The record is a 73-nucleotide sequence from Candidatus Methylomirabilis lanthanidiphila, which matches "tRNA" in Rfam. Rfam classes the family as a transfer RNA. Pairs were carried over by alignment from the consensus structure, which is taken from published work. On this family, see Hou, Trends Biochem Sci 1993: "The tertiary structure of tRNA and the development of the genetic code". NCBI's taxonomy places the organism under Bacteria, Bacteria candidate phyla, Methylomirabilota (SeqCode), Methylomirabilaceae (SeqCode), Methylomirabilis (SeqCode).
RNA sequence: GGGCGGUUAGCUCAGUCGGUAGAGCGCCGUCUUCACACGGCGGAGGUCAUUGGUUCGAUCCCAAUACCGCCCA
Number, nucleotide and partner (000 for none) at each position: 001g072002g071003g070004c069005g068006g067007u066008u000009a000010g025011c024012u023013c022014a000015g000016u000017c000018g000019g000020u000021a000022g013023a012024g011025c010026g000027c043028c042029g041030u040031c039032u000033u000034c000035a000036c000037a000038c000039g031040g030041c029042g028043g027044a000045g000046g000047u000048c000049a065050u064051u063052g062053g061054u000055u000056c000057g000058a000059u000060c000061c053062c052063a051064a050065u049066a007067c006068c005069g004070c003071c002072c001073a000